[Rfam]
RNA sequence: GCUGAGCUUGGUAAUGUGAGCUUGUAACCCAUAUGGGGGCAACAAAGUGGUUGGAAGUUGGCUCUCGGCCCAUUGGUUAGGGUUGUUGGAGUUGUUCUUUGGCCUGUCCAUUCCAAGUAGGGAGUUGGGCUAUGGGCUUUAGGCGAAGGCCUAGUGUCCAUGGCCCUUAGGGUUAGAAGGAAACCGCGUGAGGCUGGUUUAACAGAGCAACGUAACCUUCCGCUCUUGUAGGUGGAAGGAUAGCAGGUCGAUUCUCCUAGGCCUAAUAUAAAUCUGUGGGUAGUUCUCGGCUUGACAUCCACAUUU
Numbered sequence: 001g002c003u004g005a006g007c008u009u010g011g012u013a014a015u016g017u018g019a020g021c022u023u024g025u026a027a028c029c030c031a032u033a034u035g036g037g038g039g040c041a042a043c044a045a046a047g048u049g050g051u052u053g054g055a056a057g058u059u060g061g062c063u064c065u066c067g068g069c070c071c072a073u074u075g076g077u078u079a080g081g082g083u084u085g086u087u088g089g090a091g092u093u094g095u096u097c098u099u100u101g102g103c104c105u106g107u108c109c110a111u112u113c114c115a116a117g118u119a120g121g122g123a124g125u126u127g128g129g130c131u132a133u134g135g136g137c138u139u140u141a142g143g144c145g146a147a148g149g150c151c152u153a154g155u156g157u158c159c160a161u162g163g164c165c166c167u168u169a170g171g172g173u174u175a176g177a178a179g180g181a182a183a184c185c186g187c188g189u190g191a192g193g194c195u196g197g198u199u200u201a202a203c204a205g206a207g208c209a210a211c212g213u214a215a216c217c218u219u220c221c222g223c224u225c226u227u228g229u230a231g232g233u234g235g236a237a238g239g240a241u242a243g244c245a246g247g248u249c250g251a252u253u254c255u256c257c258u259a260g261g262c263c264u265a266a267u268a269u270a271a272a273u274c275u276g277u278g279g280g281u282a283g284u285u286c287u288c289g290g291c292u293u294g295a296c297a298u299c300c301a302c303a304u305u306u
Stems, first nucleotide, its partner, number of pairs: 001040003004023007028037003044305002047302004052297002056293002058290003061286001064283002069280005075274004079264003083260003089256003094252001099251009108239002111237005120227006127166011139154006167172001176220005186213004194205003
RNA: Plant signal recognition particle RNA